[Rfam]
RNA sequence: CCUUAAGGUGCUGUAGCAGCACAUCAUGGUUUGCAUGCUCUGCUGAAGAUGCGAAUCAUUAUUUGCUGCUUUAGAAAUUUAAGG
Numbered sequence: 001c002c003u004u005a006a007g008g009u010g011c012u013g014u015a016g017c018a019g020c021a022c023a024u025c026a027u028g029g030u031u032u033g034c035a036u037g038c039u040c041u042g043c044u045g046a047a048g049a050u051g052c053g054a055a056u057c058a059u060u061a062u063u064u065g066c067u068g069c070u071u072u073a074g075a076a077a078u079u080u081a082a083g084g
Stems, first nucleotide, its partner, number of pairs: 001084006013072001015070007023062002026059011

This 84-nucleotide RNA from Pachyramphus minor belongs to the Rfam family "mir-15 microRNA precursor family".
Rfam links the family to the GO terms RISC complex and miRNA-mediated post-transcriptional gene silencing.
Clan: mir-15 clan.
About the family: This family represents the related mir-15a and mir-15b sequences. In humans miR-15a and miR-16 are clustered within 0.5 kb at 13q14. This region has been shown to be deleted in more than half of B cell chronic lymphocytic leukaemias (CLL). Both miR-15a and miR-16 are deleted or down-regulated in more than two thirds of CLL cases.
Lineage of the source: Eukaryota > Deuterostomia > Neoaves > Passeriformes > Pachyramphus.